Notes:
Rfam assigns this 115-nucleotide RNA from Rudaeicoccus suwonensis to the family "SAM (S-adenosyl methionine) riboswitch aptamer". Rfam 15.1 lists 2,360 matches to the family in 1,305 species. Rfam's curators write: SAM-IV is a mRNA element that regulates gene expression via direct sensing of S-adenosylmethionine (SAM or AdoMet). The match comes from Rfam's covariance-model search (110 bits). Pairs were carried over by alignment from the consensus structure, which is taken from published work.

[Rfam]
RNA sequence: GGUCACGAGUCUCAGCGUCAAGCCCCGGCUGGCUGAGCGGCAACCCUCCUCCGCGGUGGGGUGCUCCGGGUGACGACCGGGCCGACGGCACCAACGCCGCCGGCAAGCGCGGACC
Numbered sequence: 001g002g003u004c005a006c007g008a009g010u011c012u013c014a015g016c017g018u019c020a021a022g023c024c025c026c027g028g029c030u031g032g033c034u035g036a037g038c039g040g041c042a043a044c045c046c047u048c049c050u051c052c053g054c055g056g057u058g059g060g061g062u063g064c065u066c067c068g069g070g071u072g073a074c075g076a077c078c079g080g081g082c083c084g085a086c087g088g089c090a091c092c093a094a095c096g097c098c099g100c101c102g103g104c105a106a107g108c109g110c111g112g113a114c115c
Stems, first nucleotide, its partner, number of pairs: 001078004009038001011037006021030002039065003044061003048056002081104004086099004